[Rfam]
Description:
Rfam assigns this 253-nucleotide RNA sequence from Pseudomonas sp. URIL14HWK12:I9 to the family "sRNA regulator of biofilms A". The source organism's lineage runs through Bacteria, Gammaproteobacteria, Pseudomonadales, Pseudomonadaceae and Pseudomonas. A reference for the family is Taylor et al. (2017), "A novel small RNA is important for biofilm formation and pathogenicity in Pseudomonas aeruginosa", PLoS One. The match comes from Rfam's covariance-model search (84 bits). The base pairs follow the family's consensus structure, which was predicted with R-scape. About the family: Important for biofilm formation and pathogenicity. It is annotated as a small RNA.
RNA sequence: AUCAGGGGCCCCGAAAGGGGCCUCCAGCGCACUGGUUGACACCCUAAUGAGUGCGCUGCGUCUGCACGGCCCAAAAGGCGGUCCGACGGGAUGGUGACUGGAACGAAGUUGUCCCGAGGGACGGAAGCAUUGAAAGGCUCUCCACGCGGAGCCUACGCCAUUAUGAAGUGAAUACCGGCGGGCACUACAUUGAUGCCCUACCCACCUUCACGGCACCACUGCUUCUUUGCUCUCGGUCAAGAUCGACCGGUUC
Numbered sequence: 001a002u003c004a005g006g007g008g009c010c011c012c013g014a015a016a017g018g019g020g021c022c023u024c025c026a027g028c029g030c031a032c033u034g035g036u037u038g039a040c041a042c043c044c045u046a047a048u049g050a051g052u053g054c055g056c057u058g059c060g061u062c063u064g065c066a067c068g069g070c071c072c073a074a075a076a077g078g079c080g081g082u083c084c085g086a087c088g089g090g091a092u093g094g095u096g097a098c099u100g101g102a103a104c105g106a107a108g109u110u111g112u113c114c115c116g117a118g119g120g121a122c123g124g125a126a127g128c129a130u131u132g133a134a135a136g137g138c139u140c141u142c143c144a145c146g147c148g149g150a151g152c153c154u155a156c157g158c159c160a161u162u163a164u165g166a167a168g169u170g171a172a173u174a175c176c177g178g179c180g181g182g183c184a185c186u187a188c189a190u191u192g193a194u195g196c197c198c199u200a201c202c203c204a205c206c207u208u209c210a211c212g213g214c215a216c217c218a219c220u221g222c223u224u225c226u227u228u229g230c231u232c233u234c235g236g237u238c239a240a241g242a243u244c245g246a247c248c249g250g251u252u253c
Stems, first nucleotide, its partner, number of pairs: 002058001005024008029056002035052003039048001060152001061150005069079003081138002085131002088128001114124002161168002174223001176221003180217002233250003237246002